Plastid-rps12 3UTR RNA: a 103-nucleotide RNA. From the family's description: Plastid rpl20 is a non-coding RNA (ncRNA) recognised in plastids. It was found in the three prime untranslated region (3UTR) of rps12 gene, its 3UTR location sugest a role in transcript maduration. By type it is a cis-regulatory element. On this family, see Richter et al., Plant Commun 2023: "Retrograde signaling in plants: A critical review focusing on the GUN pathway and beyond". Rfam 15.1 lists 1,710 matches to the family in 1,426 species.

[Rfam]
RNA sequence: GGUUUCCAUUGGUGCAAAUUCAAUCACCUCAAUUUUCAAUUUCAAAUGAGAAAGAAUUCCCCGUUGGUAACAAAUGAUUGUCCGUUAAGCAGGGAAAUCUUAU
Numbered sequence: 001g002g003u004u005u006c007c008a009u010u011g012g013u014g015c016a017a018a019u020u021c022a023a024u025c026a027c028c029u030c031a032a033u034u035u036u037c038a039a040u041u042u043c044a045a046a047u048g049a050g051a052a053a054g055a056a057u058u059c060c061c062c063g064u065u066g067g068u069a070a071c072a073a074a075u076g077a078u079u080g081u082c083c084g085u086u087a088a089g090c091a092g093g094g095a096a097a098u099c100u101u102a103u
Base pairs, nucleotide, nucleotide: 009023010022011021012020059094060093061092063085064084066082067081068080069079070078